[Rfam]
The family of this 465-nucleotide RNA from Hymenoscyphus albidus is "RNase MRP". Rfam 15.1 lists 3,510 matches to the family in 2,315 species. Rfam's curators write: RNase MRP is an enzymatically active ribonucleoprotein with two distinct roles in eukaryotes. Lineage of the source: Eukaryota > Dikarya > sordariomyceta > Helotiaceae > Hymenoscyphus. By type it is a ribozyme.
RNA sequence: CUCUCGCUCAAAGAAUCGCAUUCGAAGCCCACAAACAGAAAGCAUCCUUCGGGGUGCUUUCACCACUUCAUGCUUUGGGAGAAAGUCCCCGGACACCCUUCUUCGCGAAGGAACUGCGGAAACGCGCCGCCAUAGAAGCACCUCGCGGCUUCUCCUCUCAUCAAUUCUUCAUGUCUCUUUUCCUCCACCUGCAUACCGUUCGUACUGCAUUCUUACCUUAAGCGGUUAGAUAUUGGGACCUGGGGAGACCACAUGGACGAUGAUAUGAGUCCGCGCUCUUUUAGGAACCGGUAUUGCGGUCGUCACUGGGACGUUUGCAGGAGGUGUGUGGACUGUUCUUGGGGAGCUUGGGGAUUUUCUGGUGUUUGGAAUCUUUUUGUCGAGAUCGAUAGUUAUGCGAUUGUCCUAUCCUCCAUGCAAAUGGAUGGAUGGGGUAACUCGAUGGGGCUUAUUCUUGAUGCGAGG
Numbered sequence: 001c002u003c004u005c006g007c008u009c010a011a012a013g014a015a016u017c018g019c020a021u022u023c024g025a026a027g028c029c030c031a032c033a034a035a036c037a038g039a040a041a042g043c044a045u046c047c048u049u050c051g052g053g054g055u056g057c058u059u060u061c062a063c064c065a066c067u068u069c070a071u072g073c074u075u076u077g078g079g080a081g082a083a084a085g086u087c088c089c090c091g092g093a094c095a096c097c098c099u100u101c102u103u104c105g106c107g108a109a110g111g112a113a114c115u116g117c118g119g120a121a122a123c124g125c126g127c128c129g130c131c132a133u134a135g136a137a138g139c140a141c142c143u144c145g146c147g148g149c150u151u152c153u154c155c156u157c158u159c160a161u162c163a164a165u166u167c168u169u170c171a172u173g174u175c176u177c178u179u180u181u182c183c184u185c186c187a188c189c190u191g192c193a194u195a196c197c198g199u200u201c202g203u204a205c206u207g208c209a210u211u212c213u214u215a216c217c218u219u220a221a222g223c224g225g226u227u228a229g230a231u232a233u234u235g236g237g238a239c240c241u242g243g244g245g246a247g248a249c250c251a252c253a254u255g256g257a258c259g260a261u262g263a264u265a266u267g268a269g270u271c272c273g274c275g276c277u278c279u280u281u282u283a284g285g286a287a288c289c290g291g292u293a294u295u296g297c298g299g300u301c302g303u304c305a306c307u308g309g310g311a312c313g314u315u316u317g318c319a320g321g322a323g324g325u326g327u328g329u330g331g332a333c334u335g336u337u338c339u340u341g342g343g344g345a346g347c348u349u350g351g352g353g354a355u356u357u358u359c360u361g362g363u364g365u366u367u368g369g370a371a372u373c374u375u376u377u378u379g380u381c382g383a384g385a386u387c388g389a390u391a392g393u394u395a396u397g398c399g400a401u402u403g404u405c406c407u408a409u410c411c412u413c414c415a416u417g418c419a420a421a422u423g424g425a426u427g428g429a430u431g432g433g434g435u436a437a438c439u440c441g442a443u444g445g446g447g448c449u450u451a452u453u454c455u456u457g458a459u460g461c462g463a464g465g
Stems, first nucleotide, its partner, number of pairs: 002465006008458004014402006022079001023077006038061010083450003087447004115126004127148004132143001404434008